[Rfam]
Overview:
The family of this 56-nucleotide RNA from Oxalis drummondii is "Plastid-psbA-4 3UTR RNA". It is annotated as a cis-regulatory element. The literature on the family includes a 2023 paper in Plant Commun by Richter et al., "Retrograde signaling in plants: A critical review focusing on the GUN pathway and beyond". Lineage of the source: Eukaryota > Streptophyta > Mesangiospermae > eudicotyledons > Oxalis.
RNA sequence: GUUAAAGAAGCAAUAAAAUCCCCUGGAUAUAUCCAGGGGAUUUUAUUGCUUCUUUA
Numbered sequence: 001g002u003u004a005a006a007g008a009a010g011c012a013a014u015a016a017a018a019u020c021c022c023c024u025g026g027a028u029a030u031a032u033c034c035a036g037g038g039g040a041u042u043u044u045a046u047u048g049c050u051u052c053u054u055u056a
Base pairs, nucleotide, nucleotide: 004055005054006053007052008051009050010049011048012047013046014045015044018041019040021038022037023036024035025034026033